[Rfam]
RNA: Plastid-psbl-rps4 3UTR RNA
Organism: Buergersiochloa bambusoides
RNA sequence: CGGAAAGAGGGGGAUUCGAACCCUCGGUACAAAAAAAUUGUACAACGGAUUAG
Numbered sequence: 001c002g003g004a005a006a007g008a009g010g011g012g013g014a015u016u017c018g019a020a021c022c023c024u025c026g027g028u029a030c031a032a033a034a035a036a037a038u039u040g041u042a043c044a045a046c047g048g049a050u051u052a053g
Stems, first nucleotide, its partner, number of pairs: 009025005027043006